[Rfam]
Shown here is an 81-nucleotide RNA from Merluccius polli, a member of the family "mir-26 microRNA precursor family". Its family is annotated with miRNA-mediated post-transcriptional gene silencing and RISC complex in the Gene Ontology. It scores 84 bits against the family's covariance model.

RNA sequence: CCAUAGCUUGGUUCAAGUAAUCCAGGAUAGGCUGGUUCACAACCGCACGGCCUAUUCUUGAUUACUUGUUUCAGGAAAUGG
Dot-bracket structure: .(((..(((((..(((((((((.((((((((((...............)))))))))).)))))))))..)))))..))).